[Rfam]
RNA sequence: UCGCAGCCAGUUAAGCCAACCGUGUUCCAUCCCCCGUGGGGGCCCGGUGUGCAGUGGCUGCAGACAGCAGCCUCCUCGGUGGUACAUGCAGCCUGUUGCCCGUAGGGGUUGCCCUCAGGGACGCUGGAUUCGGCC
Number, nucleotide and partner (000 for none) at each position: 001u000002c000003g052004c051005a050006g000007c000008c000009a000010g000011u000012u000013a000014a000015g000016c000017c000018a000019a048020c047021c046022g045023u000024g000025u042026u041027c040028c039029a000030u000031c000032c000033c000034c000035c000036g000037u000038g000039g028040g027041g026042g025043c000044c000045c022046g021047g020048u019049g000050u005051g004052c003053a000054g000055u000056g000057g000058c000059u000060g000061c000062a000063g000064a000065c000066a000067g000068c000069a000070g000071c000072c000073u000074c000075c000076u000077c000078g000079g122080u121081g000082g000083u000084a000085c000086a000087u000088g000089c111090a110091g109092c108093c107094u106095g000096u000097u000098g000099c000100c000101c000102g000103u000104a000105g000106g094107g093108g092109u091110u090111g089112c000113c000114c000115u000116c000117a000118g000119g000120g000121a080122c079123g000124c000125u000126g000127g000128a000129u000130u000131c000132g000133g000134c000135c000
Shown here is a 135-nucleotide sequence from Eschrichtius robustus, a member of the family "Small nucleolar RNA SNORA70". Pairs were carried over by alignment from the consensus structure, which was predicted with PFOLD. For this family Rfam cites "Pseudouridine in RNA: what, where, how, and why" (Charette and Gray, IUBMB Life, 2000). The family has 43 seed sequences and 5,173 matches in Rfam 15.1. Lineage of the source: Eukaryota > Bilateria > Boreoeutheria > Whippomorpha > Eschrichtius. The match comes from Rfam's covariance-model search (109 bits). It is annotated as an H/ACA-box small nucleolar RNA. About the family: snoRNA U70 seems to be exclusive to mammals and is a member of the H/ACA class of snoRNA which contain H (ANANNA) and ACA box motifs. H/ACA box snoRNAs are involved in the conversion of uridines to pseudouridines (5-ribosyluracil) a constituent of structural RNAs (transfer, ribosomal, small nuclear, and small nucleolar).